[Rfam]
RNA: MIR162_1 microRNA precursor family
Organism: Glycine max
RNA sequence: GUGAAGUCACUGGAUGCAGCGGUUCAUCGAUCUCUUCCUGAAUCGUUGUUUAACAUCAGAACCAUGAAUCGAUCGAUAAACCUCUGCAUCCAGCGCUCACUC
Numbered sequence: 001g002u003g004a005a006g007u008c009a010c011u012g013g014a015u016g017c018a019g020c021g022g023u024u025c026a027u028c029g030a031u032c033u034c035u036u037c038c039u040g041a042a043u044c045g046u047u048g049u050u051u052a053a054c055a056u057c058a059g060a061a062c063c064a065u066g067a068a069u070c071g072a073u074c075g076a077u078a079a080a081c082c083u084c085u086g087c088a089u090c091c092a093g094c095g096c097u098c099a100c101u102c
Stems, first nucleotide, its partner, number of pairs: 012091003017086003021082004026077007035068003